[Rfam]
RNA sequence: GCUGGGUGCUGUGGCGUGCAUCUGUAAUCUAGCUACUUGGAGGCUGAUCUCUCGAAUGGCUUGAGUUCGGGACCACUGCAGUGCAGUCUCCUAUGUCGAACGAGCGUCCACACUAAGCUCAAUGUCAACAUGGUUAUCAUGUAGGAAUGCAAGAUACACCAGGUUCGAUAAUGAAGAACGCAUUGGCCCAGGGCGGAAACGCAGCAGGCAAAAGUUCUCACAAUGAGCAGUAGUGGGAUAGCGCUUGUGAGUAGGCGUUGUGCUGUAGCUUGAACAAUACAGUCGAACGAAGAUCUUU
Numbered sequence: 001g002c003u004g005g006g007u008g009c010u011g012u013g014g015c016g017u018g019c020a021u022c023u024g025u026a027a028u029c030u031a032g033c034u035a036c037u038u039g040g041a042g043g044c045u046g047a048u049c050u051c052u053c054g055a056a057u058g059g060c061u062u063g064a065g066u067u068c069g070g071g072a073c074c075a076c077u078g079c080a081g082u083g084c085a086g087u088c089u090c091c092u093a094u095g096u097c098g099a100a101c102g103a104g105c106g107u108c109c110a111c112a113c114u115a116a117g118c119u120c121a122a123u124g125u126c127a128a129c130a131u132g133g134u135u136a137u138c139a140u141g142u143a144g145g146a147a148u149g150c151a152a153g154a155u156a157c158a159c160c161a162g163g164u165u166c167g168a169u170a171a172u173g174a175a176g177a178a179c180g181c182a183u184u185g186g187c188c189c190a191g192g193g194c195g196g197a198a199a200c201g202c203a204g205c206a207g208g209c210a211a212a213a214g215u216u217c218u219c220a221c222a223a224u225g226a227g228c229a230g231u232a233g234u235g236g237g238a239u240a241g242c243g244c245u246u247g248u249g250a251g252u253a254g255g256c257g258u259u260g261u262g263c264u265g266u267a268g269c270u271u272g273a274a275c276a277a278u279a280c281a282g283u284c285g286a287a288c289g290a291a292g293a294u295c296u297u298u
Stems, first nucleotide, its partner, number of pairs: 001044003004023006028041003046295005052289001057285005065275007076268012090255005096249001100248008108237002111235005117228005123222003127165003131161004135156004140151004168172001175218005184211001186209003193202003
A member of the RNA family "Metazoan signal recognition particle RNA" from Clytia hemisphaerica, 298 nucleotides long. The family's RNA type in Rfam is non-coding RNA gene. From the family's description: The signal recognition particle (SRP) is a universally conserved ribonucleoprotein. Rfam 15.1 lists 383,523 matches to the family in 1,221 species. The family's consensus secondary structure is taken from published work.